[Rfam]
RNA: Small nucleolar RNA Z199
Organism: Erythranthe guttata
RNA sequence: AAAUCAUGUGAUGAGAGAAAAACUGCAACAAUAUGAUCGGUAAAUUACCUCUGAUUCGUAGUAUUUAAGUCUCUGAUGAUU
Numbered sequence: 001a002a003a004u005c006a007u008g009u010g011a012u013g014a015g016a017g018a019a020a021a022a023c024u025g026c027a028a029c030a031a032u033a034u035g036a037u038c039g040g041u042a043a044a045u046u047a048c049c050u051c052u053g054a055u056u057c058g059u060a061g062u063a064u065u066u067a068a069g070u071c072u073c074u075g076a077u078g079a080u081u
Stems, first nucleotide, its partner, number of pairs: 001081002004079003039049004